[Rfam]
RNA sequence: AACCGAAUUCCCGGAGAGGGAACUCCGGGAAGAUCCAAUAAAUUACGAUUAAGUGGUAAGAAUCAACGAACAUGUUGCAAUA
Numbered sequence: 001a002a003c004c005g006a007a008u009u010c011c012c013g014g015a016g017a018g019g020g021a022a023c024u025c026c027g028g029g030a031a032g033a034u035c036c037a038a039u040a041a042a043u044u045a046c047g048a049u050u051a052a053g054u055g056g057u058a059a060g061a062a063u064c065a066a067c068g069a070a071c072a073u074g075u076u077g078c079a080a081u082a
Stems, first nucleotide, its partner, number of pairs: 008031009064077004

The record is an 82-nucleotide RNA sequence from Melanocenchris abyssinica, which matches "Plastid-rpl20 3UTR RNA" in Rfam. Rfam's curators write: Plastid rpl20 is a non-coding RNA (ncRNA) recognised in plastids. It was found in the three prime untranslated region (3UTR) of rpl20 gene, it presence in the 3UTR region sugest a role in transcript maduration. Taxonomically the source falls in Melanocenchris (Eukaryota, Streptophytina, Euphyllophyta, Liliopsida). Rfam's curators put it in the seed alignment.